The record is a 98-nucleotide RNA, which matches "pemK RNA" in Rfam. The sequence is in the family's curated seed alignment.
RNA sequence: ACAAUGAUACUCCUGUAUAGCCACAGUCCGAGCGUUCAAAGCGUCGCAGGCAAUGGGUACAGCUCCGGCAGACCGUCGGAGGGGUGAAACUCCCGUGA
Dot-bracket structure: ...........(((((((......................................))))))(((.(((.....))).)))(((.......))))...
Numbered sequence: 001a002c003a004a005u006g007a008u009a010c011u012c013c014u015g016u017a018u019a020g021c022c023a024c025a026g027u028c029c030g031a032g033c034g035u036u037c038a039a040a041g042c043g044u045c046g047c048a049g050g051c052a053a054u055g056g057g058u059a060c061a062g063c064u065c066c067g068g069c070a071g072a073c074c075g076u077c078g079g080a081g082g083g084g085u086g087a088a089a090c091u092c093c094c095g096u097g098a
Stems, first nucleotide, its partner, number of pairs: 012095001013062006063081003067077003082094003